[Rfam]
RNA sequence: ACAGAUGACGGGGAUGGAGUCCCCCCAAAAUGCUCGUAAUGAGCUGAUGACUCCUACCGCUAC
Numbered sequence: 001a002c003a004g005a006u007g008a009c010g011g012g013g014a015u016g017g018a019g020u021c022c023c024c025c026c027a028a029a030a031u032g033c034u035c036g037u038a039a040u041g042a043g044c045u046g047a048u049g050a051c052u053c054c055u056a057c058c059g060c061u062a063c
Stems, first nucleotide, its partner, number of pairs: 010025004016054006032044004
RNA: Fluoride riboswitch aptamer (crcB RNA motif)
Organism: Desulfomonile tiedjei